[Rfam]
RNA sequence: AGGAGGAACAUCCACAGUGGCAGCGGCCAGCUCUGCAGCCCUGGAGUCAGCCCCUGCAGUAACUCCCGAGUCCUCCGUCUGCAGGGCCUGGAGGCUCCGGGGCGGG
Numbered sequence: 001a002g003g004a005g006g007a008a009c010a011u012c013c014a015c016a017g018u019g020g021c022a023g024c025g026g027c028c029a030g031c032u033c034u035g036c037a038g039c040c041c042u043g044g045a046g047u048c049a050g051c052c053c054c055u056g057c058a059g060u061a062a063c064u065c066c067c068g069a070g071u072c073c074u075c076c077g078u079c080u081g082c083a084g085g086g087c088c089u090g091g092a093g094g095c096u097c098c099g100g101g102g103c104g105g106g
Stems, first nucleotide, its partner, number of pairs: 002098004009090002012086002019079003023075001025074002030071004035066001037064001041059003
This 106-nucleotide RNA from Canis lupus belongs to the Rfam family "mir-8834 microRNA precursor family". The family has 2 seed sequences and 13,926 matches in Rfam 15.1. Lineage of the source: Eukaryota > Craniata > Sarcopterygii > Caniformia > Canis lupus. A search with the family's covariance model found it, with a score of 52 bits.